Background:
Shown here is a 68-nucleotide RNA sequence from Mesobacillus zeae, a member of the family "Listeria sRNA sbrA". The base pairs follow the family's consensus structure, which was predicted with WAR. By type it is a small RNA. A reference for the family is Toledo-Arana et al. (2009), "The Listeria transcriptional landscape from saprophytism to virulence", Nature.
[Rfam]
RNA sequence: AUACAGCUAGAACCAUACCCCUAAACUCCCUAGAUGAAAGGACAGCGCAAAUAUGCUGUCCUUCUUUU
Numbered sequence: 001a002u003a004c005a006g007c008u009a010g011a012a013c014c015a016u017a018c019c020c021c022u023a024a025a026c027u028c029c030c031u032a033g034a035u036g037a038a039a040g041g042a043c044a045g046c047g048c049a050a051a052u053a054u055g056c057u058g059u060c061c062u063u064c065u066u067u068u
Stems, first nucleotide, its partner, number of pairs: 004036002007033003040061008